[Rfam]
RNA: PhotoRC-II RNA
RNA sequence: UUACUGUUCGUAACACCCCUUCAACCAAGACCUAUAGGGUGUCUAAAAACGUCUUUCAUACCUGUGUCUAAGGGUGAUACAGGAAUAGUAAAACCA
Numbered sequence: 001u002u003a004c005u006g007u008u009c010g011u012a013a014c015a016c017c018c019c020u021u022c023a024a025c026c027a028a029g030a031c032c033u034a035u036a037g038g039g040u041g042u043c044u045a046a047a048a049a050c051g052u053c054u055u056u057c058a059u060a061c062c063u064g065u066g067u068c069u070a071a072g073g074g075u076g077a078u079a080c081a082g083g084a085a086u087a088g089u090a091a092a093a094c095c096a
Stems, first nucleotide, its partner, number of pairs: 014041005021036001027055005061083007